[Rfam]
RNA sequence: AGCACCUUUAAUUCAGUCCCGUGAGACUGGCAAGGUAACGUGAACGACGAUUCACUAAGAAUACGUCCGCCGAGAGCGGAACGAUUUUUAGCGCUCUUCGUCGAAUCAACAUGUCGAUUUCGACUCCUUGCCCGCCUGGGCAAGGAGUCUUUUUGC
Number, nucleotide and partner (000 for none) at each position: 001a000002g000003c000004a036005c035006c034007u033008u032009u000010a000011a000012u000013u030014c029015a028016g027017u026018c025019c000020c000021g000022u000023g000024a000025g018026a017027c016028u015029g014030g013031c000032a008033a007034g006035g005036u004037a000038a000039c000040g000041u000042g000043a000044a000045c000046g000047a000048c000049g000050a000051u000052u000053c000054a000055c000056u000057a089058a088059g087060a086061a085062u084063a000064c000065g000066u080067c079068c078069g077070c076071c000072g000073a000074g000075a000076g070077c069078g068079g067080a066081a000082c000083g000084a062085u061086u060087u059088u058089u057090a000091g000092c000093g000094c000095u000096c000097u000098u000099c000100g000101u000102c000103g000104a000105a000106u000107c000108a000109a000110c000111a000112u000113g000114u000115c000116g000117a000118u000119u000120u000121c000122g149123a148124c147125u146126c145127c144128u143129u142130g141131c140132c139133c138134g000135c000136c000137u000138g133139g132140g131141c130142a129143a128144g127145g126146a125147g124148u123149c122150u000151u000152u000153u000154u000155g000156c000